Overview
The record is a 133-nucleotide RNA from Brassicogethes aeneus, which matches "U4 spliceosomal RNA" in Rfam. U4 small nuclear RNA (U4 snRNA) is a component of the major U2-dependent spliceosome. The organism belongs to Brassicogethes, within Eukaryota. The family's consensus secondary structure is taken from published work. The match comes from Rfam's covariance-model search (58 bits).
Nucleotides: 133
Stems, first nucleotide, its partner, number of pairs: 020052005026047003034042002080106002083104003088099004121133003
Number, partner (000 for none) and nucleotide at each position: 001000a002000g003000c004000u005000u006000u007000g008000c009000g010000c011000a012000a013000a014000a015000g016000c017000a018000u019000u020052a021051u022050c023049g024048u025000a026047a027046c028045c029000a030000g031000u032000g033000a034042g035041g036000u037000c038000u039000a040000u041035c042034c043000g044000a045028g046027g047026u048024g049023c050022g051021a052020u053000u054000a055000u056000u057000g058000c059000u060000a061000g062000u063000a064000g065000a066000u067000c068000a069000c070000a071000g072000u073000g074000a075000a076000a077000a078000u079000g080106a081105a082000a083104u084103u085102a086000u087000u088099u089098g090097u091096g092000u093000u094000u095000u096091u097090a098089c099088g100000u101000u102085u103084g104083g105081u106080u107000a108000a109000a110000g111000u112000g113000u114000u115000g116000u117000a118000c119000c120000c121133c122132c123131c124000u125000c126000c127000c128000c129000g130000u131123g132122g133121g